[Rfam]
RNA: Repression of heat shock gene expression (ROSE) element
Organism: Pseudomonas matsuisoli
RNA sequence: GUGGGGAUGCCGAAGUCGGGUCCCCCGUUUGAAAACUUGCUGAUCUAUCAGGAGAAAUUCAUGAGC
Numbered sequence: 001g002u003g004g005g006g007a008u009g010c011c012g013a014a015g016u017c018g019g020g021u022c023c024c025c026c027g028u029u030u031g032a033a034a035a036c037u038u039g040c041u042g043a044u045c046u047a048u049c050a051g052g053a054g055a056a057a058u059u060c061a062u063g064a065g066c
Base pairs, nucleotide, nucleotide: 003025004024005023006022007021008020010019011018012017036054037053038052040051041050042049043048